[Rfam]
This 139-nucleotide RNA from Candidatus Saccharibacteria bacterium TM7i belongs to the Rfam family "lysM-TM7 RNA". The match comes from Rfam's covariance-model search (81 bits). By type it is a cis-regulatory element. Lineage of the source: Bacteria > Bacteria candidate phyla > Candidatus Saccharimonadota. The base pairs follow the family's consensus structure, which is taken from published work.
RNA sequence: GCCUAUCAGGACGGUCGUACGGAUGCCGAAAACUUUAUAAUAUUAAUUAACGGUCGACAUGCAUCCUUUUUACCGCAAAAGCGCGUAAAGUAAGACCCAGUACGGUAGACGCCCUCGAGAGAAAUCCGAGCGGCAGGAG
Numbered sequence: 001g002c003c004u005a006u007c008a009g010g011a012c013g014g015u016c017g018u019a020c021g022g023a024u025g026c027c028g029a030a031a032a033c034u035u036u037a038u039a040a041u042a043u044u045a046a047u048u049a050a051c052g053g054u055c056g057a058c059a060u061g062c063a064u065c066c067u068u069u070u071u072a073c074c075g076c077a078a079a080a081g082c083g084c085g086u087a088a089a090g091u092a093a094g095a096c097c098c099a100g101u102a103c104g105g106u107a108g109a110c111g112c113c114c115u116c117g118a119g120a121g122a123a124a125u126c127c128g129a130g131c132g133g134c135a136g137g138a139g
Stems, first nucleotide, its partner, number of pairs: 003108005013097004021066006069089004111134003115129003119126002